Rfam assigns this 169-nucleotide RNA sequence from Tenuibacillus multivorans to the family "Lysine riboswitch aptamer". The family's consensus secondary structure is taken from published work.
[Rfam]
RNA sequence: CGAUGAGGUAGAGGCGCAACUAACAUGAGUAAUGUGCAUGAGGAUGACAACGAAGAUUGUACAUGAAAGGGUUAAUUGCCGAAGCGUUUAUUUUUAGUCAAAAAAUAAAUGUUGGUAUGUAUCUGAAAAAGGUAUAUACUCUCGCAAAUGGCGGGGCGCUACUGAUCGA
Dot-bracket structure: ......(((((....((((.((((.......(((((((...................)))))))......)))).))))...((((((((((((.......))))))))))))(((((((((((.....))))))))))).((((.....))))....)))))......
Lineage of the source: Bacteria > Bacillati > Bacilli > Caryophanales > Tenuibacillus.